[Rfam]
The record is a 76-nucleotide RNA from Myotis myotis, which matches "mir-9229 microRNA precursor family" in Rfam. The base pairs follow the family's consensus structure, which was predicted with RNAalifold. The organism belongs to Myotis, within Eukaryota. A search with the family's covariance model found it, with a score of 74 bits. Gene Ontology terms of the family: RISC complex and miRNA-mediated post-transcriptional gene silencing.
RNA sequence: GAGACACCCCUAUGGAGCAGGCCUCACUUCAGUAGGGCUUUGGUGCUCACUGAGUCUUCCCCUUGAAUGUGUCACU
Numbered sequence: 001g002a003g004a005c006a007c008c009c010c011u012a013u014g015g016a017g018c019a020g021g022c023c024u025c026a027c028u029u030c031a032g033u034a035g036g037g038c039u040u041u042g043g044u045g046c047u048c049a050c051u052g053a054g055u056c057u058u059c060c061c062c063u064u065g066a067a068u069g070u071g072u073c074a075c076u
Base pairs, nucleotide, nucleotide: 001075003073004072005071006070007069011065012064014062015061017059019057021056023054029053030052031051032050033049035047036046037044038043